Small nucleolar RNA psi28S-3316: a 132-nucleotide sequence from Drosophila busckii. The source organism's lineage runs through Eukaryota, Allotriocarida, Brachycera, Muscomorpha and Dorsilopha. Its family is annotated with nucleolus and RNA processing in the Gene Ontology. The match comes from Rfam's covariance-model search (97 bits). Rfam classes the family as an H/ACA-box small nucleolar RNA. Rfam describes the family as follows. psi28S-3316 is a member of the H/ACA class of snoRNA. This family is responsible for guiding the modification of uridine 3316 in Drosophila 28S rRNA to pseudouridine.
[Rfam]
RNA sequence: GGCACCUAAAAGCGUUUUCUCGAUCGCUCUGAUAAAACGCGCUUGAAAAUCGUAGCUGUGUGCCAGAGCAAAUCUUGGUUGCAAGUGAUUACAAUUCCUUCGAGUCUGUAGUCCAUAACGCCGAGUACAUUA
Numbered sequence: 001g002g003c004a005c006c007u008a009a010a011a012g013c014g015u016u017u018u019c020u021c022g023a024u025c026g027c028u029c030u031g032a033u034a035a036a037a038c039g040c041g042c043u044u045g046a047a048a049a050u051c052g053u054a055g056c057u058g059u060g061u062g063c064c065a066g067a068g069c070a071a072a073u074c075u076u077g078g079u080u081g082c083a084a085g086u087g088a089u090u091a092c093a094a095u096u097c098c099u100u101c102g103a104g105u106c107u108g109u110a111g112u113c114c115a116u117a118a119c120g121c122c123g124a125g126u127a128c129a130u131u132a
Stems, first nucleotide, its partner, number of pairs: 001064005006058001012053003015049005022040001075124005085116003088112004093107001096104001